[Rfam]
RNA: Iron response element I
Organism: Myotis brandtii
Nucleotides: 035
Base pairs, nucleotide, nucleotide: 001035002034003033006031007030008029010028012027013026014025015024016023
Number, partner (000 for none) and nucleotide at each position: 001035u002034u003033g004000u005000c006031u007030c008029u009000u010028g011000c012027u013026u014025c015024a016023a017000a018000a019000g020000u021000g022000u023016u024015u025014g026013g027012a028010c029008g030007g031006a032000c033003c034002a035001g